RNA sequence: GGCGCGUGACUUGCUAGGAACACUUCAACCAGGCAAUCAACGCUGAUUGCCCUCUCACGACAAAGGCGCCGU
Numbered sequence: 001g002g003c004g005c006g007u008g009a010c011u012u013g014c015u016a017g018g019a020a021c022a023c024u025u026c027a028a029c030c031a032g033g034c035a036a037u038c039a040a041c042g043c044u045g046a047u048u049g050c051c052c053u054c055u056c057a058c059g060a061c062a063a064a065g066g067c068g069c070c071g072u
Base pairs, nucleotide, nucleotide: 032051033050034049035048036047037046038045
RNA: narK RNA